[Rfam]
RNA sequence: CGUACAACCCGCGGGAGCUCGGGGAACCGGGCUGAGAGGGUAGCUGAGCCGCUGCCGACCGCCUGAACCUGUCCGGAUAAUGCCGGCGUAGGGAGCGUGUGAUGACGUCUG
Numbered sequence: 001c002g003u004a005c006a007a008c009c010c011g012c013g014g015g016a017g018c019u020c021g022g023g024g025a026a027c028c029g030g031g032c033u034g035a036g037a038g039g040g041u042a043g044c045u046g047a048g049c050c051g052c053u054g055c056c057g058a059c060c061g062c063c064u065g066a067a068c069c070u071g072u073c074c075g076g077a078u079a080a081u082g083c084c085g086g087c088g089u090a091g092g093g094a095g096c097g098u099g100u101g102a103u104g105a106c107g108u109c110u111g
Stems, first nucleotide, its partner, number of pairs: 007098002010095001011062004017032005039056005068092004073086004
RNA: TPP riboswitch aptamer (THI element)
Organism: Sinosporangium album